[Rfam]
A member of the RNA family "Plastid-ccsA-ndhD-2 3UTR RNA" from Boswellia sacra, 51 nucleotides long.
The organism belongs to Boswellia, within Eukaryota.
For this family Rfam cites "Control of plastid gene expression: 3' inverted repeats act as mRNA processing and stabilizing elements, but do not terminate transcription" (Stern and Gruissem, Cell, 1987).
It is one of the family's seed sequences.
The family's consensus secondary structure was predicted with LocARNA.
By type it is a cis-regulatory element.
Rfam's curators write: Plastid ccsA-ndhD-2 is a non-coding RNA (ncRNA) recognised in plastids. It was found in the three prime untranslated region (3UTR) of ccsA and ndhD genes, its 3UTR location suggests a role in transcript maturation.
RNA sequence: CAUUUGUGAGAACCUUUUGAAUCAAGUAGUGUAGUGAUUCAAAAGGUUCUC
Numbered sequence: 001c002a003u004u005u006g007u008g009a010g011a012a013c014c015u016u017u018u019g020a021a022u023c024a025a026g027u028a029g030u031g032u033a034g035u036g037a038u039u040c041a042a043a044a045g046g047u048u049c050u051c
Stems, first nucleotide, its partner, number of pairs: 008051017